[Rfam]
RNA sequence: GACUUGUGUGAAAUCCCUUUUACCAGACUGACAUGUCAUAUAUGACUGGUAAGAUUCAGCUAUGAAGUCAGCCAAAGC
Numbered sequence: 001g002a003c004u005u006g007u008g009u010g011a012a013a014u015c016c017c018u019u020u021u022a023c024c025a026g027a028c029u030g031a032c033a034u035g036u037c038a039u040a041u042a043u044g045a046c047u048g049g050u051a052a053g054a055u056u057c058a059g060c061u062a063u064g065a066a067g068u069c070a071g072c073c074a075a076a077g078c
Stems, first nucleotide, its partner, number of pairs: 001069004